[Rfam]
RNA sequence: UGCAUUCACUACUGUAAGUUGUUCUGGAUAAGAGCGUCUACUAAAUGACUAAAA
Number, nucleotide and partner (000 for none) at each position: 001u000002g000003c000004a000005u000006u000007c000008a000009c000010u000011a000012c000013u043014g041015u040016a039017a000018g000019u000020u036021g035022u034023u033024c032025u031026g000027g000028a000029u000030a000031a025032g024033a023034g022035c021036g020037u000038c000039u016040a015041c014042u000043a013044a000045a000046u000047g000048a000049c000050u000051a000052a000053a000054a000
The record is a 54-nucleotide RNA sequence from Salmo trutta, which matches "UnaL2 LINE 3' element" in Rfam. The organism belongs to Salmo, within Eukaryota. Rfam classes the family as a cis-regulatory element.